A member of the RNA family "mir-574 microRNA precursor family" from Cnephaeus nilssonii, 81 nucleotides long. Its family is annotated with RISC complex and miRNA-mediated post-transcriptional gene silencing in the Gene Ontology. Its Rfam clan is "mir-574 microRNA precursor clan". The source organism's lineage runs through Eukaryota, Opisthokonta, Deuterostomia, Gnathostomata and Cnephaeus.
RNA sequence: GGGCCUGGAGAGAGAAGCAGGGUCUGAUCCAUAGCCUCCAUGGCAACUGCUGAUCAGCCCUUGCCUCUCUCUUUUGCUCCA
Dot-bracket structure: .......((((((((.((((.(.((((((..(((............)))..)))))).).)))).))))))))........